[Rfam]
RNA sequence: CUUCCGUCUUCCCCGCACAGGAAGGCGGACCGAGGAACCGGAGCUCUCUGCCCUGACUGCCCCGGGUCCUCAUCCUCGGCCGAACGGGACCGCACACCCCACGGCCGAUAUUGCUCCGGGCUGCGGUGCCGGGAAGGUUGAGGGUCCUUCCCAGGCGC
Numbered sequence: 001c002u003u004c005c006g007u008c009u010u011c012c013c014c015g016c017a018c019a020g021g022a023a024g025g026c027g028g029a030c031c032g033a034g035g036a037a038c039c040g041g042a043g044c045u046c047u048c049u050g051c052c053c054u055g056a057c058u059g060c061c062c063c064g065g066g067u068c069c070u071c072a073u074c075c076u077c078g079g080c081c082g083a084a085c086g087g088g089a090c091c092g093c094a095c096a097c098c099c100c101a102c103g104g105c106c107g108a109u110a111u112u113g114c115u116c117c118g119g120g121c122u123g124c125g126g127u128g129c130c131g132g133g134a135a136g137g138u139u140g141a142g143g144g145u146c147c148u149u150c151c152c153a154g155g156c157g158c
Stems, first nucleotide, its partner, number of pairs: 003029004008024005032071005038065004043060002045056002076108007086099003112128004117123002131152007